[Rfam]
RNA sequence: UUUUGUAAAAGGCGAACCCUCCGAAAGCUGGGGACGCAAAGUCACAGGUCUUCCAUGGCAGCAUGAUGACGGCUGGACUGCCUGC
Numbered sequence: 001u002u003u004u005g006u007a008a009a010a011g012g013c014g015a016a017c018c019c020u021c022c023g024a025a026a027g028c029u030g031g032g033g034a035c036g037c038a039a040a041g042u043c044a045c046a047g048g049u050c051u052u053c054c055a056u057g058g059c060a061g062c063a064u065g066a067u068g069a070c071g072g073c074u075g076g077a078c079u080g081c082c083u084g085c
Stems, first nucleotide, its partner, number of pairs: 012037002017032003022027001040079004045075003048070003055064003

Shown here is an 85-nucleotide RNA sequence from Lentibacillus amyloliquefaciens, a member of the family "c-di-GMP-I riboswitch aptamer". Lineage of the source: Bacteria > Bacillota > Bacilli > Caryophanales > Lentibacillus. The base pairs follow the family's consensus structure, which is taken from published work. For this family Rfam cites "Identification of 22 candidate structured RNAs in bacteria using the CMfinder comparative genomics pipeline" (Weinberg et al., Nucleic Acids Res, 2007). GEMM was predicted in a large-scale screen for bacterial structured RNA regulatory elements.